The record is a 338-nucleotide sequence from Methanoregula formicica, which matches "Archaeal RNase P" in Rfam. On this family, see Frank and Pace, Annu Rev Biochem 1998: "Ribonuclease P: unity and diversity in a tRNA processing ribozyme". Ribonuclease P (RNase P) is a ubiquitous endoribonuclease, found in archaea, bacteria and eukarya as well as chloroplasts and mitochondria. Its best characterised activity is the generation of mature 5'-ends of tRNAs by cleaving the 5'-leader elements of precursor-tRNAs. Cellular RNase Ps are ribonucleoproteins. It scores 206 bits against the family's covariance model.

RNA sequence: GAGAGGGAGAGAGCGGCUGACGGUGACAGAAAUGUUGCUGAGGAAAGUCCCCCCACCCACCGGGCACGCAGCCGUACGCAAGUACGGGUGGCGAGAGUCACGGCAAUGGCACAGAAACGACACGGCCUGCCAACAGUCAUGAUGCGGUUGAGCCUUACGGCGAGAAGCAUGGUCUCCAUGCGAGUAACCCGCUGAGCGAUCACGGGCAGGAAACGGUGAAACGGCGAAUCCCUGCGGGUGCAAGUCAGAACAGGACAGAUGGAUCGUCCGGUAUCCGUCCGGGUAUGACGCAGAGCUAAAUGCCGCUUGAAACAAAAGGAGGCUUACUCCUCCCACUC
Numbered sequence: 001g002a003g004a005g006g007g008a009g010a011g012a013g014c015g016g017c018u019g020a021c022g023g024u025g026a027c028a029g030a031a032a033u034g035u036u037g038c039u040g041a042g043g044a045a046a047g048u049c050c051c052c053c054c055a056c057c058c059a060c061c062g063g064g065c066a067c068g069c070a071g072c073c074g075u076a077c078g079c080a081a082g083u084a085c086g087g088g089u090g091g092c093g094a095g096a097g098u099c100a101c102g103g104c105a106a107u108g109g110c111a112c113a114g115a116a117a118c119g120a121c122a123c124g125g126c127c128u129g130c131c132a133a134c135a136g137u138c139a140u141g142a143u144g145c146g147g148u149u150g151a152g153c154c155u156u157a158c159g160g161c162g163a164g165a166a167g168c169a170u171g172g173u174c175u176c177c178a179u180g181c182g183a184g185u186a187a188c189c190c191g192c193u194g195a196g197c198g199a200u201c202a203c204g205g206g207c208a209g210g211a212a213a214c215g216g217u218g219a220a221a222c223g224g225c226g227a228a229u230c231c232c233u234g235c236g237g238g239u240g241c242a243a244g245u246c247a248g249a250a251c252a253g254g255a256c257a258g259a260u261g262g263a264u265c266g267u268c269c270g271g272u273a274u275c276c277g278u279c280c281g282g283g284u285a286u287g288a289c290g291c292a293g294a295g296c297u298a299a300a301u302g303c304c305g306c307u308u309g310a311a312a313c314a315a316a317a318g319g320a321g322g323c324u325u326a327c328u329c330c331u332c333c334c335a336c337u338c
Stems, first nucleotide, its partner, number of pairs: 001338003005334005010328002012307006021040008045325003049322002052319002054240004059272006067236005072087005088101005102231002107227001109225002123215002126210006144192004244289004253280004
Dot-bracket structure: (((.(((((((((((((...((((((((....))))))))....[[[.[[.[[((((.[[[[[[..((((((((((......)))))(((((....)))))((...(.((............((.((((((............((((.........................................))))............))))))...))........)).)..)))))))))))...((((.....((((..........]]]]]]....)))).....))))............))))))..........]].]]]]].)).))))).)))